[Rfam]
RNA sequence: UUCCCUGGAGAGACCCAUAAGCAGCAGGAUGCCACGGGCUCGGGCGCCGAAGGGGUAACCUCGGGCGAGGAAAUCUCUCAGGCCAAAGGACAGGGAG
Numbered sequence: 001u002u003c004c005c006u007g008g009a010g011a012g013a014c015c016c017a018u019a020a021g022c023a024g025c026a027g028g029a030u031g032c033c034a035c036g037g038g039c040u041c042g043g044g045c046g047c048c049g050a051a052g053g054g055g056u057a058a059c060c061u062c063g064g065g066c067g068a069g070g071a072a073a074u075c076u077c078u079c080a081g082g083c084c085a086a087a088g089g090a091c092a093g094g095g096a097g
Stems, first nucleotide, its partner, number of pairs: 001097007014044003046083003049079002053077003059070002

This 97-nucleotide RNA sequence from Gelria sp. Kuro-4 belongs to the Rfam family "Glycine riboswitch aptamer".
The pairing is the family consensus, mapped onto this sequence.
A search with the family's covariance model found it, with a score of 54 bits.